This 177-nucleotide RNA sequence from Acinetobacter populi belongs to the Rfam family "Acinetobacter sRNA 28". The match comes from Rfam's covariance-model search (76 bits). The source organism's lineage runs through Bacteria, Pseudomonadati, Moraxellales, Moraxellaceae and Acinetobacter.

Nucleotides: 177
Base pairs, nucleotide, nucleotide: 005130006129007128008127011126013124014123015027017025018024019023030089031088032087033084034083035082036081037080040078041077042076043075055063056062091120092119093118094117095116096115097114098113099112100111134155135154136153137152138151139150140149141148142147163173164172165171
Number, partner (000 for none) and nucleotide at each position: 001000c002000u003000a004000u005130u006129u007128u008127u009000u010000a011126g012000c013124c014123a015027c016000c017025a018024g019023a020000u021000a022000u023019u024018u025017u026000a027015g028000a029000g030089g031088a032087g033084g034083a035082c036081g037080u038000u039000a040078u041077g042076c043075u044000u045000u046000u047000a048000u049000c050000u051000g052000u053000a054000g055063a056062g057000a058000a059000c060000a061000a062056c063055u064000u065000a066000a067000u068000c069000u070000g071000a072000u073000u074000c075043a076042g077041c078040a079000u080037a081036c082035g083034u084033c085000a086000g087032c088031u089030c090000a091120c092119g093118g094117a095116c096115a097114u098113a099112u100111g101000u102000u103000g104000u105000a106000u107000c108000u109000a110000c111100c112099a113098u114097a115096u116095g117094u118093c119092c120091g121000a122000a123014u124013g125000c126011c127008a128007a129006g130005a131000u132000u133000c134155a135154a136153g137152c138151c139150u140149a141148g142147c143000a144000u145000u146000c147142g148141c149140u150139a151138g152137g153136u154135u155134u156000u157000u158000u159000u160000u161000a162000u163173g164172u165171c166000u167000a168000u169000u170000u171165g172164a173163u174000c175000c176000g177000a